[Rfam]
Record summary
This 88-nucleotide RNA sequence from Fusarium irregulare belongs to the Rfam family "tRNA". It is annotated as a transfer RNA. NCBI's taxonomy places the organism under Eukaryota, Pezizomycotina, Hypocreales, Nectriaceae, Fusarium incarnatum-equiseti species complex. The family's consensus secondary structure is taken from published work.
RNA sequence: GGGCUUAUGGUCUAGGGGUAUGAUUUUCCCUUCGCAUCUAUCAAACGACGCUUGGGAAAGGUCCGGGGUUCAAUUCCCCGUGAGUCCA
Numbered sequence: 001g002g003g004c005u006u007a008u009g010g011u012c013u014a015g016g017g018g019u020a021u022g023a024u025u026u027u028c029c030c031u032u033c034g035c036a037u038c039u040a041u042c043a044a045a046c047g048a049c050g051c052u053u054g055g056g057a058a059a060g061g062u063c064c065g066g067g068g069u070u071c072a073a074u075u076c077c078c079c080g081u082g083a084g085u086c087c088a
Base pairs, nucleotide, nucleotide: 001087002086003085004084005083006082007081010024011023012022026058027057028056029055030054064080065079066078067077068076